[Rfam]
RNA: Purine riboswitch aptamer
RNA sequence: AAAGAGGUUCGAUGUUUUUCUCGUAUAAGUGCGGGGAUUGGCCUGCAUGUUUCUACCUGAUCACCGGAAAUGAUCGGACUACGGGAGGAGCUCUAUUUUUC
Dot-bracket structure: .................((((((((...(((((((......)))))))........(((((((.......)))))))..))))))))..............
Numbered sequence: 001a002a003a004g005a006g007g008u009u010c011g012a013u014g015u016u017u018u019u020c021u022c023g024u025a026u027a028a029g030u031g032c033g034g035g036g037a038u039u040g041g042c043c044u045g046c047a048u049g050u051u052u053c054u055a056c057c058u059g060a061u062c063a064c065c066g067g068a069a070a071u072g073a074u075c076g077g078a079c080u081a082c083g084g085g086a087g088g089a090g091c092u093c094u095a096u097u098u099u100u101c
Stems, first nucleotide, its partner, number of pairs: 018087008029048007057077007